A member of the RNA family "Potassium channel RNA editing signal" from Caligus rogercresseyi, 114 nucleotides long. A search with the family's covariance model found it, with a score of 82 bits. Rfam classes the family as a cis-regulatory element.
[Rfam]
RNA sequence: GUGGGCUAUGGGGACAUGAGCCCGGAAACUCUUUUUGGGAAACUAGUAGGCUCUGUCUGUUGCAUCUGCGGUGUCCUUGUCAUUGCUCUCCCAAUUCCAAUCAUUGUCAAUAAC
Numbered sequence: 001g002u003g004g005g006c007u008a009u010g011g012g013g014a015c016a017u018g019a020g021c022c023c024g025g026a027a028a029c030u031c032u033u034u035u036u037g038g039g040a041a042a043c044u045a046g047u048a049g050g051c052u053c054u055g056u057c058u059g060u061u062g063c064a065u066c067u068g069c070g071g072u073g074u075c076c077u078u079g080u081c082a083u084u085g086c087u088c089u090c091c092c093a094a095u096u097c098c099a100a101u102c103a104u105u106g107u108c109a110a111u112a113a114c
Base pairs, nucleotide, nucleotide: 001114002113004111008107009106010105011104013102014101018097019096020095037077038076039075040074049063